[Rfam]
RNA sequence: AUACCCUGCGGAGUGCUCAGGUCCGCCGCAUCUCCUGGGUCCGUAGGGUCGGCCGGCGCAUGAGUGGUUAGGAGUGGCCUCCUCGAGAUCCACUUGGCGCCGGCCACCUC
Numbered sequence: 001a002u003a004c005c006c007u008g009c010g011g012a013g014u015g016c017u018c019a020g021g022u023c024c025g026c027c028g029c030a031u032c033u034c035c036u037g038g039g040u041c042c043g044u045a046g047g048g049u050c051g052g053c054c055g056g057c058g059c060a061u062g063a064g065u066g067g068u069u070a071g072g073a074g075u076g077g078c079c080u081c082c083u084c085g086a087g088a089u090c091c092a093c094u095u096g097g098c099g100c101c102g103g104c105c106a107c108c109u110c
Base pairs, nucleotide, nucleotide: 003049004048005047006046007045008044009043010042016039017038018037019036020035021034051105052104053103054102055101056100057099058098059097
RNA: EcpR1